Nucleotides: 122
Base pairs, nucleotide, nucleotide: 007083008082009081010080011079012078015075016074017110018109019108020107059071060070061069062068099117100116101115102114103113
Number, partner (000 for none) and nucleotide at each position: 001000u002000u003000u004000u005000c006000c007083c008082g009081u010080c011079g012078c013000g014000a015075c016074u017110g018109g019108c020107g021000c022000c023000a024000u025000c026000c027000c028000a029000c030000c031000c032000g033000g034000c035000c036000u037000c038000g039000a040000g041000c042000a043000g044000g045000c046000u047000c048000g049000g050000u051000g052000g053000g054000g055000c056000g057000a058000g059071g060070u061069g062068g063000a064000g065000c066000a067000a068062c069061c070060a071059c072000c073000g074016g075015g076000g077000a078012g079011c080010g081009a082008c083007g084000u085000a086000c087000u088000g089000u090000g091000c092000c093000g094000a095000c096000g097000a098000c099117g100116g101115g102114u103113c104000g105000u106000u107020c108019g109018c110017c111000u112000g113103g114102g115101c116100c117099c118000g119000g120000g121000g122000u